Annotation: mir-9242 microRNA precursor family: a 64-nucleotide RNA from Myotis lucifugus. The base pairs follow the family's consensus structure, which was predicted with RNAalifold. The source organism's lineage runs through Eukaryota, Sarcopterygii, Tetrapoda, Theria and Myotis.
RNA sequence: GGCCUCCCUCUGUGGGGCGAUCGAUCAUGGGGCUCCACGAUAGAUCGCCCAGCAAAGGGAGGCC
Number, nucleotide and partner (000 for none) at each position: 001g064002g063003c062004c061005u060006c059007c058008c057009u056010c000011u054012g053013u052014g000015g050016g049017g048018c047019g046020a045021u044022c043023g000024a041025u040026c039027a000028u037029g036030g035031g000032g000033c000034u000035c030036c029037a028038c000039g026040a025041u024042a000043g022044a021045u020046c019047g018048c017049c016050c015051a000052g013053c012054a011055a000056a009057g008058g007059g006060a005061g004062g003063c002064c001